RNA: ZMP/ZTP riboswitch aptamer (pfl RNA motif)
RNA sequence: CAAGGGCCCCAUGACUGGCGGCUAUAUGUGGAAUUGACCACAGGGGAGUGGGGCCAAUAGGAAUGCCGGCCGCCUGGGCAAAUUGC
Numbered sequence: 001c002a003a004g005g006g007c008c009c010c011a012u013g014a015c016u017g018g019c020g021g022c023u024a025u026a027u028g029u030g031g032a033a034u035u036g037a038c039c040a041c042a043g044g045g046g047a048g049u050g051g052g053g054c055c056a057a058u059a060g061g062a063a064u065g066c067c068g069g070c071c072g073c074c075u076g077g078g079c080a081a082a083u084u085g086c
Stems, first nucleotide, its partner, number of pairs: 005055008015045002017074005028041004064080004